[Rfam]
RNA sequence: UGUUGAUAAAGGCAAGCCUCCGAAAGUUGGGGACGCAAAGCCACGAGUUUAAUGUUUUACGAUGGCAGUCGGUUCUCAUC
Numbered sequence: 001u002g003u004u005g006a007u008a009a010a011g012g013c014a015a016g017c018c019u020c021c022g023a024a025a026g027u028u029g030g031g032g033a034c035g036c037a038a039a040g041c042c043a044c045g046a047g048u049u050u051a052a053u054g055u056u057u058u059a060c061g062a063u064g065g066c067a068g069u070c071g072g073u074u075c076u077c078a079u080c
Stems, first nucleotide, its partner, number of pairs: 012036002017031003021026001039074004045070002047066003054060002
Dot-bracket structure: ...........((...(((.(....)..)))...))..((((..(((((....((...))...)))..))))))......
The record is an 80-nucleotide RNA from Desulfosporosinus metallidurans, which matches "c-di-GMP-I riboswitch aptamer" in Rfam. GEMM was predicted in a large-scale screen for bacterial structured RNA regulatory elements. Gene Ontology term of the family: cyclic-di-GMP binding.